[Rfam]
RNA sequence: GAGUUAGCCAAGAUAAUCGCUGCCUGUGACGAAAAUGAUCAGGGGGAGGAAAGUCCGGGCUCCAUAGGGCAGAGUGCCAGUUAACGGCUGGGGGGCGCGAGCCCACGACAAGUGCAGCAGAGAGAAGACCGCCAAUCUUCGGAUUGGUAAGGGUGAAAGGGUGCGGUAAGAGCGCACCGGGCCGCUAGUAAUAGUCGGUUGCAAGGUAAACUCCACUCGGAGCAAGACCAAAUAGGGUUCCUUAUGGCGUGGCCCACGUUGGAACCGGGUAGGUUGCUUGAGCCAUAGAGCGAUUUAUGGCCUAGACGAAUGAUUAUCACUUUCUUCGGAAAGGACAGAACCCGGCUUAUACGGCUAACUCACUC
Numbered sequence: 001g002a003g004u005u006a007g008c009c010a011a012g013a014u015a016a017u018c019g020c021u022g023c024c025u026g027u028g029a030c031g032a033a034a035a036u037g038a039u040c041a042g043g044g045g046g047a048g049g050a051a052a053g054u055c056c057g058g059g060c061u062c063c064a065u066a067g068g069g070c071a072g073a074g075u076g077c078c079a080g081u082u083a084a085c086g087g088c089u090g091g092g093g094g095g096c097g098c099g100a101g102c103c104c105a106c107g108a109c110a111a112g113u114g115c116a117g118c119a120g121a122g123a124g125a126a127g128a129c130c131g132c133c134a135a136u137c138u139u140c141g142g143a144u145u146g147g148u149a150a151g152g153g154u155g156a157a158a159g160g161g162u163g164c165g166g167u168a169a170g171a172g173c174g175c176a177c178c179g180g181g182c183c184g185c186u187a188g189u190a191a192u193a194g195u196c197g198g199u200u201g202c203a204a205g206g207u208a209a210a211c212u213c214c215a216c217u218c219g220g221a222g223c224a225a226g227a228c229c230a231a232a233u234a235g236g237g238u239u240c241c242u243u244a245u246g247g248c249g250u251g252g253c254c255c256a257c258g259u260u261g262g263a264a265c266c267g268g269g270u271a272g273g274u275u276g277c278u279u280g281a282g283c284c285a286u287a288g289a290g291c292g293a294u295u296u297a298u299g300g301c302c303u304a305g306a307c308g309a310a311u312g313a314u315u316a317u318c319a320c321u322u323u324c325u326u327c328g329g330a331a332a333g334g335a336c337a338g339a340a341c342c343c344g345g346c347u348u349a350u351a352c353g354g355c356u357a358a359c360u361c362a363c364u365c
Stems, first nucleotide, its partner, number of pairs: 001361009011350001012318007020046002023043004051348003055345005060222004067255004072218005077091005092106001093104004107213002112211002114207002129152002131148007160178006179202001180200005185194003226275004236266006246260005282301008

The family of this 365-nucleotide RNA sequence from Pseudoalteromonas translucida is "Bacterial RNase P class A". Rfam's curators write: Ribonuclease P (RNase P) is a ubiquitous endoribonuclease, found in archaea, bacteria and eukarya as well as chloroplasts and mitochondria. Rfam classes the family as a ribozyme.